[Rfam]
RNA: U11 spliceosomal RNA
RNA sequence: AAAAAGGGUGCCUGCUGCUUCAUGGUACGUGGGGCUUCGGCCCCGCGAGGUAUGGCCAUCCAGACAUACCUGGCACAUAAUCUUUGGGACUCGGGGGCAGCUGCAUGUUCUUUACCAUGGGCGCCCCU
Numbered sequence: 001a002a003a004a005a006g007g008g009u010g011c012c013u014g015c016u017g018c019u020u021c022a023u024g025g026u027a028c029g030u031g032g033g034g035c036u037u038c039g040g041c042c043c044c045g046c047g048a049g050g051u052a053u054g055g056c057c058a059u060c061c062a063g064a065c066a067u068a069c070c071u072g073g074c075a076c077a078u079a080a081u082c083u084u085u086g087g088g089a090c091u092c093g094g095g096g097g098c099a100g101c102u103g104c105a106u107g108u109u110c111u112u113u114a115c116c117a118u119g120g121g122c123g124c125c126c127c128u
Stems, first nucleotide, its partner, number of pairs: 008076005013027005028047008048071007095126004100122003106117002109114001
Dot-bracket structure: .......((((((((((.....)))))((((((((....))))))))(((((((..........))))))))))))..................((((.(((...((.(....).))..)))))))..